[Rfam]
RNA sequence: AAGGCAGAUGAUGAGGAAGACAAAGACAUCCACAUCUCCUGAUUUAAAUUGUGGACACAAUACCAUGAUGAUUCCGUCUAGGGGAAUCUCUGAUGCCAA
Numbered sequence: 001a002a003g004g005c006a007g008a009u010g011a012u013g014a015g016g017a018a019g020a021c022a023a024a025g026a027c028a029u030c031c032a033c034a035u036c037u038c039c040u041g042a043u044u045u046a047a048a049u050u051g052u053g054g055a056c057a058c059a060a061u062a063c064c065a066u067g068a069u070g071a072u073u074c075c076g077u078c079u080a081g082g083g084g085a086a087u088c089u090c091u092g093a094u095g096c097c098a099a
Stems, first nucleotide, its partner, number of pairs: 003097004